[Rfam]
RNA sequence: CUGCGCUAUCACUGACCCCACACACGUAUCGUCACAUGGUCCCGGGUGCCUGUCGCAGGCUGCGCUGGGUCGGAUCCAUGGGAUGCGUGGAGGCUCAAC
Numbered sequence: 001c002u003g004c005g006c007u008a009u010c011a012c013u014g015a016c017c018c019c020a021c022a023c024a025c026g027u028a029u030c031g032u033c034a035c036a037u038g039g040u041c042c043c044g045g046g047u048g049c050c051u052g053u054c055g056c057a058g059g060c061u062g063c064g065c066u067g068g069g070u071c072g073g074a075u076c077c078a079u080g081g082g083a084u085g086c087g088u089g090g091a092g093g094c095u096c097a098a099c
Base pairs, nucleotide, nucleotide: 023089024088025087026086027085028084029083030082035080036079037078038077039076040074041073042072048070049069050068051067052066
t44 RNA: a 99-nucleotide sequence from Zymobacter palmae. It scores 68 bits against the family's covariance model. Pairs were carried over by alignment from the consensus structure, which was predicted with LocARNA. NCBI's taxonomy places the organism under Bacteria, Gammaproteobacteria, Oceanospirillales, Halomonadaceae, Zymobacter.